[Rfam]
RNA sequence: AGCCCAAUCAACUGUAAGUCACUUUGGAUAAAAGCAUCUACUAAAUGACUAAUU
Numbered sequence: 001a002g003c004c005c006a007a008u009c010a011a012c013u014g015u016a017a018g019u020c021a022c023u024u025u026g027g028a029u030a031a032a033a034g035c036a037u038c039u040a041c042u043a044a045a046u047g048a049c050u051a052a053u054u
Base pairs, nucleotide, nucleotide: 013043014041015040016039022034023033024032025031
Shown here is a 54-nucleotide RNA sequence from Albula goreensis, a member of the family "UnaL2 LINE 3' element". Taxonomically the source falls in Albula (Eukaryota, Eumetazoa, Craniata, Albulidae). The family's consensus secondary structure is taken from published work.